Rfam assigns this 80-nucleotide RNA sequence to the family "Small nucleolar RNA SNORD113/SNORD114 family". Rfam 15.1 lists 5,721 matches to the family in 142 species. Rfam's curators put it in the seed alignment. On this family, see Cavaille et al., Hum Mol Genet 2002: "Identification of tandemly-repeated C/D snoRNA genes at the imprinted human 14q32 domain reminiscent of those at the Prader-Willi/Angelman syndrome region". The imprinted human domain at 14q32 contains two clusters of tandemly repeated small nucleolar RNAs named 14q(I) and 14q(II) snoRNAs. These two clusters are named SNORD113 and SNORD114 respectively in the HGNC approved gene symbol nomenclature. The snoRNAs found in both clusters are clearly related and are represented here by a single family. These snoRNAs are intron encoded and are processed from the tissue-specific non-coding human MEG8 RNA, which lies downstream of the imprinted genes DLK1 and GTL2. snoRNAs 14q(I) and 14q(II) differ from previously identified C/D box snoRNAs in their expression profiles and lack of complementarity to rRNA and snRNA. Homologues of these snoRNAs are found in the imprinted non-coding mouse transcript Rian, and in the rat non-coding Bsr (brain-specific repetitive) RNA.
RNA sequence: GGAUCAUUGAUGACCAUAAAAGAUGUGGGAGUCGUCUGAAACAUGCAUGAUGACCACAACAUUGCGAGUCUGAGGUCCAC
Numbered sequence: 001g002g003a004u005c006a007u008u009g010a011u012g013a014c015c016a017u018a019a020a021a022g023a024u025g026u027g028g029g030a031g032u033c034g035u036c037u038g039a040a041a042c043a044u045g046c047a048u049g050a051u052g053a054c055c056a057c058a059a060c061a062u063u064g065c066g067a068g069u070c071u072g073a074g075g076u077c078c079a080c
Stems, first nucleotide, its partner, number of pairs: 001078005